[Rfam]
Nucleotides: 115
Base pairs, nucleotide, nucleotide: 011038012037013036014035015034016033017032018031019030039063040062041057042056043055044054045053075112076111077110078109080108081107082106083105085104086103087102088101089100
Number, partner (000 for none) and nucleotide at each position: 001000a002000u003000c004000a005000a006000a007000a008000a009000a010000a011038g012037g013036c014035u015034g016033u017032u018031c019030c020000u021000c022000a023000g024000g025000g026000u027000a028000u029000a030019g031018g032017a033016a034015c035014a036013g037012c038011c039063u040062u041057g042056c043055c044054c045053g046000a047000a048000u049000g050000u051000u052000g053045c054044g055043g056042g057041c058000u059000a060000u061000g062040g063039g064000a065000g066000a067000g068000g069000a070000g071000a072000a073000a074000c075112c076111g077110g078109a079000g080108g081107a082106a083105g084000a085104g086103c087102u088101u089100a090000u091000g092000g093000g094000g095000a096000a097000a098000c099000g100089u101088a102087a103086g104085c105083c106082u107081u108080c109078u110077c111076c112075g113000c114000g115000g